This 97-nucleotide RNA from Nodularia spumigena belongs to the Rfam family "Bacterial small signal recognition particle RNA". The literature on the family includes a 2003 paper in Nucleic Acids Res by Rosenblad et al., "SRPDB: Signal Recognition Particle Database". NCBI's taxonomy places the organism under Bacteria, Bacillati, Cyanophyceae, Nodularia, Nodularia spumigena. Pairs were carried over by alignment from the consensus structure, which is taken from published work. It is annotated as a non-coding RNA gene.

RNA sequence: GACCUGGAUCUACGCGACUGUAACGCCCAAAUCUUGUCAGAACCGGAAGGUGGCAGCAAUACGGGAUGCUUAUGGUAGGCGUAGUCUCCGGGUCGCC
Numbered sequence: 001g002a003c004c005u006g007g008a009u010c011u012a013c014g015c016g017a018c019u020g021u022a023a024c025g026c027c028c029a030a031a032u033c034u035u036g037u038c039a040g041a042a043c044c045g046g047a048a049g050g051u052g053g054c055a056g057c058a059a060u061a062c063g064g065g066a067u068g069c070u071u072a073u074g075g076u077a078g079g080c081g082u083a084g085u086c087u088c089c090g091g092g093u094c095g096c097c
Stems, first nucleotide, its partner, number of pairs: 004091005010084005017076006026065003034059004042051003